[Rfam]
RNA: PyrR binding site
RNA sequence: AGAACCUUUAAGUUCAGUCCCGUGAGGCUGACAAGGUGGGCGUGUAUGUAGGGUGUACUGUAUUCUUUUUGAGUAGAAUACGUAUGUCUCUUUAGGCAAACCACUUGUCAGAUCUUGACAAGUGGUUUUUUUAU
Numbered sequence: 001a002g003a004a005c006c007u008u009u010a011a012g013u014u015c016a017g018u019c020c021c022g023u024g025a026g027g028c029u030g031a032c033a034a035g036g037u038g039g040g041c042g043u044g045u046a047u048g049u050a051g052g053g054u055g056u057a058c059u060g061u062a063u064u065c066u067u068u069u070u071g072a073g074u075a076g077a078a079u080a081c082g083u084a085u086g087u088c089u090c091u092u093u094a095g096g097c098a099a100a101c102c103a104c105u106u107g108u109c110a111g112a113u114c115u116u117g118a119c120a121a122g123u124g125g126u127u128u129u130u131u132u133a134u
Stems, first nucleotide, its partner, number of pairs: 004037005014031006053083005059077001061075005098128013